[Rfam]
RNA sequence: UCAAAGGCUCUUUUCAGAGCCAUCCACAUUUUCACAUGAAAGGCU
Number, nucleotide and partner (000 for none) at each position: 001u000002c000003a000004a000005a000006g021007g020008c019009u018010c017011u016012u000013u000014u000015c000016a011017g010018a009019g008020c007021c006022a000023u000024c000025c000026a000027c000028a000029u000030u000031u000032u000033c000034a000035c000036a000037u000038g000039a000040a000041a000042g000043g000044c000045u000